[Rfam]
RNA sequence: GAAAUAAAAUGAUAACUCCCCUUAUAAAAGGAGCCUGGCAGCAUGGCUAGUACCACAAUGGGUGUGAAACUC
Numbered sequence: 001g002a003a004a005u006a007a008a009a010u011g012a013u014a015a016c017u018c019c020c021c022u023u024a025u026a027a028a029a030g031g032a033g034c035c036u037g038g039c040a041g042c043a044u045g046g047c048u049a050g051u052a053c054c055a056c057a058a059u060g061g062g063u064g065u066g067a068a069a070c071u072c
Stems, first nucleotide, its partner, number of pairs: 001018002005014002030054002035050001038047002060072004